Notes
mir-399 microRNA precursor family: a 121-nucleotide RNA sequence from Malus domestica. The base pairs follow the family's consensus structure, which was predicted with PFOLD. mir-399 was identified in both Arabidopsis thaliana and Oryza sativa computationally and was later experimentally verified. mir-399 is thought to target mRNAs coding for a phosphatase transporter. A search with the family's covariance model found it, with a score of 77 bits. Gene Ontology terms of the family: miRNA-mediated post-transcriptional gene silencing and RISC complex. The organism belongs to Malus, within Eukaryota.
[Rfam]
RNA sequence: GGAUGAAUAACAGUGCAAUUCUCCUUUGGCAGAAGUCAUUCUGGUGCAUAUACUCUUGAGUACUAUCGCUGGAUACAUAUAUAUGCUUUCUGCCAAAGGAGAAUUGCCCUGCAAUUCAAGA
Numbered sequence: 001g002g003a004u005g006a007a008u009a010a011c012a013g014u015g016c017a018a019u020u021c022u023c024c025u026u027u028g029g030c031a032g033a034a035g036u037c038a039u040u041c042u043g044g045u046g047c048a049u050a051u052a053c054u055c056u057u058g059a060g061u062a063c064u065a066u067c068g069c070u071g072g073a074u075a076c077a078u079a080u081a082u083a084u085g086c087u088u089u090c091u092g093c094c095a096a097a098g099g100a101g102a103a104u105u106g107c108c109c110u111g112c113a114a115u116u117c118a119a120g121a
Stems, first nucleotide, its partner, number of pairs: 005117004011111003015107005021101004027095009